[Rfam]
RNA: SAM/SAH riboswitch aptamer
RNA sequence: GGCCCGUCACAACGGCUUCCUGGCGUGACGGAGAUAACUUAAUGGAGCA
Numbered sequence: 001g002g003c004c005c006g007u008c009a010c011a012a013c014g015g016c017u018u019c020c021u022g023g024c025g026u027g028a029c030g031g032a033g034a035u036a037a038c039u040u041a042a043u044g045g046a047g048c049a
Stems, first nucleotide, its partner, number of pairs: 004031007013022002015048003019045002